The record is a 119-nucleotide sequence from Enterovirus betacoxsackie, which matches "Enteroviral 3' UTR element" in Rfam. Pairs were carried over by alignment from the consensus structure, which was predicted with PFOLD. It is one of the family's seed sequences. Rfam describes the family as follows. This RNA structure is found in the 3' UTR of various enteroviruses. The overall structure forms the origin of replication (OriR) for the initiation of (-) strand RNA synthesis. Pseudoknots have also been predicted in this structure. For this family Rfam cites "Structural requirements of the higher order RNA kissing element in the enteroviral 3'UTR" (Wang et al., Nucleic Acids Res, 1999). Taxonomically the source falls in Enterovirus B (Viruses, Riboviria, Orthornavirae, Enterovirus). The family's RNA type in Rfam is cis-regulatory element.

RNA sequence: AAGUGGUUGGACUCCUUUUAGAUUAGAGACAAUUGAAACAAUUUAGAUUGGCACAACCCUACUGUGCUAACCGAACCAGAUAACGGUACAGUAGGGGUAAAUUCUCCGCAUUCGGUGCG
Number, nucleotide and partner (000 for none) at each position: 001a000002a000003g000004u000005g000006g000007u000008u000009g000010g000011a000012c000013u000014c000015c000016u000017u000018u000019u000020a000021g000022a000023u000024u056025a000026g054027a000028g052029a000030c050031a049032a048033u047034u046035g044036a043037a042038a000039c000040a000041a000042u037043u036044u035045a000046g034047a033048u032049u031050g030051g000052c028053a000054c026055a000056a024057c096058c095059c094060u093061a092062c091063u090064g089065u088066g087067c086068u085069a000070a116071c115072c114073g113074a112075a111076c000077c000078a000079g000080a000081u000082a000083a000084c000085g068086g067087u066088a065089c064090a063091g062092u061093a060094g059095g058096g057097g000098u000099a000100a000101a000102u000103u000104c000105u000106c000107c119108g118109c117110a000111u075112u074113c073114g072115g071116u070117g109118c108119g107